[Rfam]
RNA: Selenocysteine transfer RNA
Organism: Roseibacillus persicicus
RNA sequence: GGAGAGUCAUGCGUGCCUGGUGGCCGCCGCGGUCUUCAAAACCGUUGAAGCUUCUAACGGGGCUUGGUGGGUUCGAUUCCUUCCCUCUCC
Numbered sequence: 001g002g003a004g005a006g007u008c009a010u011g012c013g014u015g016c017c018u019g020g021u022g023g024c025c026g027c028c029g030c031g032g033u034c035u036u037c038a039a040a041a042c043c044g045u046u047g048a049a050g051c052u053u054c055u056a057a058c059g060g061g062g063c064u065u066g067g068u069g070g071g072u073u074c075g076a077u078u079c080c081u082u083c084c085c086u087c088u089c090c
Stems, first nucleotide, its partner, number of pairs: 001090006011027003015024003029045005048065005069081003
Dot-bracket structure: ((((((....(((.(((....)))))).(((((.......)))))..(((((........)))))...(((.......)))...))))))